Group II catalytic intron D1-D4-6: a 222-nucleotide RNA from Edaphobacter modestus. Pairs were carried over by alignment from the consensus structure.
RNA sequence: CAAGUCCGUUACGGUGAAGGCAUAGCGAACCACACCGGCCUCGAGUCAUGCGCAGUAUAUCGUGAGGUGUGCGGCGAAGCGUUGACAGGGGAGCGUGCGGGCCAGCCAUUGAGCCACGAAAUAUUUCUCAUCCAGGACGCCGACGUAGUUACGUAUGCGGAAGGCAAAACGAACGGGUGCGACAUCGCGAGUGCCCGAACGGUCCUGCGUGGUCGUAGACCC
Numbered sequence: 001c002a003a004g005u006c007c008g009u010u011a012c013g014g015u016g017a018a019g020g021c022a023u024a025g026c027g028a029a030c031c032a033c034a035c036c037g038g039c040c041u042c043g044a045g046u047c048a049u050g051c052g053c054a055g056u057a058u059a060u061c062g063u064g065a066g067g068u069g070u071g072c073g074g075c076g077a078a079g080c081g082u083u084g085a086c087a088g089g090g091g092a093g094c095g096u097g098c099g100g101g102c103c104a105g106c107c108a109u110u111g112a113g114c115c116a117c118g119a120a121a122u123a124u125u126u127c128u129c130a131u132c133c134a135g136g137a138c139g140c141c142g143a144c145g146u147a148g149u150u151a152c153g154u155a156u157g158c159g160g161a162a163g164g165c166a167a168a169a170c171g172a173a174c175g176g177g178u179g180c181g182a183c184a185u186c187g188c189g190a191g192u193g194c195c196c197g198a199a200c201g202g203u204c205c206u207g208c209g210u211g212g213u214c215g216u217a218g219a220c221c222c
Base pairs, nucleotide, nucleotide: 012037013036014035015034016033019031020030023190025188026187039091040090041089042088045086046085047084048083049081050080051076052075053074055072056071057070058069059068060067061066111214113213114212115211116210117209118208133207134206135205136204137203138202139165140164141163144159145158146157147156170201171200174197175196176195177194178193179192180191